[Rfam]
RNA sequence: GUAAUAUAAGAUACGGUAUCUUAGCUUUUAAUUAAAAAAGCUAAGAGACGUCUCUUAUAUCUCUUAUUUAAGAGACGUCUCUUAAUUUUUUUAGUUAAAAGCUAAGAGGCUGUAUCUUAUAUUAC
Numbered sequence: 001g002u003a004a005u006a007u008a009a010g011a012u013a014c015g016g017u018a019u020c021u022u023a024g025c026u027u028u029u030a031a032u033u034a035a036a037a038a039a040g041c042u043a044a045g046a047g048a049c050g051u052c053u054c055u056u057a058u059a060u061c062u063c064u065u066a067u068u069u070a071a072g073a074g075a076c077g078u079c080u081c082u083u084a085a086u087u088u089u090u091u092u093a094g095u096u097a098a099a100a101g102c103u104a105a106g107a108g109g110c111u112g113u114a115u116c117u118u119a120u121a122u123u124a125c
Base pairs, nucleotide, nucleotide: 001125002124003123004122005121006120007119008118009117010116011115012114013113014112015111016110017109019107020106021105022104023103024102025101026100027099028098029097030096031095032094033093034092035091036090037089038088039087042084043083044082045081046080047079

A member of the RNA family "MIR9563 microRNA precursor family" from Brassica oleracea, 125 nucleotides long. Taxonomically the source falls in Brassica oleracea (Eukaryota, Streptophytina, Mesangiospermae, rosids). Its family is annotated with RISC complex and miRNA-mediated post-transcriptional gene silencing in the Gene Ontology. The family's consensus secondary structure was predicted with RNAalifold.